Source information: Shown here is a 263-nucleotide sequence from Catenibacillus scindens, a member of the family "Bacterial large signal recognition particle RNA". Pairs were carried over by alignment from the consensus structure, which is taken from published work. By type it is a non-coding RNA gene.
RNA sequence: CCGUGCAGCCGGGGAGAUAGCGGUGCCCUGUACCUGCAAUCCGCUACAGCAGGGGUGAUGUCUUUGCCGAGGAUCAUCAUCUGUAGAGCAGCCCUGUAUAAGUGGCGUUGACGCCUGGGUCUCGCGCAACAGAAACCUGUGAACCGUGUCAGGUCAGGAAUGGAGCAGCACUAAGCAGGACCUUUUGUGUGCCGCGAGGGCGCCUGGGCCGAGUUAACUGUACAGGUAACGUCUAUGGGUGUGAUUCGAAGCAGGACGCACGG
Number, nucleotide and partner (000 for none) at each position: 001c263002c262003g261004u260005g259006c258007a000008g056009c055010c054011g029012g028013g027014g026015a000016g024017a000018u022019a000020g000021c000022g018023g000024u016025g000026c014027c013028c012029u011030g000031u000032a000033c053034c052035u051036g050037c049038a000039a000040u000041c000042c000043g000044c000045u000046a000047c000048a000049g037050c036051a035052g034053g033054g010055g009056u008057g000058a000059u000060g000061u000062c000063u255064u254065u253066g252067c251068c000069g000070a000071g247072g246073a245074u244075c243076a000077u000078c241079a240080u239081c238082u237083g236084u235085a234086g233087a232088g000089c000090a000091g000092c000093c000094c225095u224096g223097u222098a221099u220100a000101a000102g218103u217104g215105g214106c213107g000108u000109u000110g000111a000112c000113g209114c208115c207116u206117g205118g204119g203120u202121c198122u197123c196124g195125c194126g193127c189128a188129a000130c187131a186132g185133a184134a183135a000136c179137c178138u177139g176140u175141g000142a000143a000144c000145c000146g171147u170148g169149u168150c000151a000152g000153g000154u163155c162156a161157g000158g000159a000160a000161u156162g155163g154164a000165g000166c000167a000168g149169c148170a147171c146172u000173a000174a000175g140176c139177a138178g137179g136180a000181c000182c000183u134184u133185u132186u131187g130188u128189g127190u000191g000192c000193c126194g125195c124196g123197a122198g121199g000200g000201c000202g120203c119204c118205u117206g116207g115208g114209c113210c000211g000212a000213g106214u105215u104216a000217a103218c102219u000220g099221u098222a097223c096224a095225g094226g000227u000228a000229a000230c000231g000232u087233c086234u085235a084236u083237g082238g081239g080240u079241g078242u000243g075244a074245u073246u072247c071248g000249a000250a000251g067252c066253a065254g064255g063256a000257c000258g006259c005260a004261c003262g002263g001
Lineage of the source: Bacteria > Bacillota > Lachnospirales > Lachnospiraceae > Catenibacillus.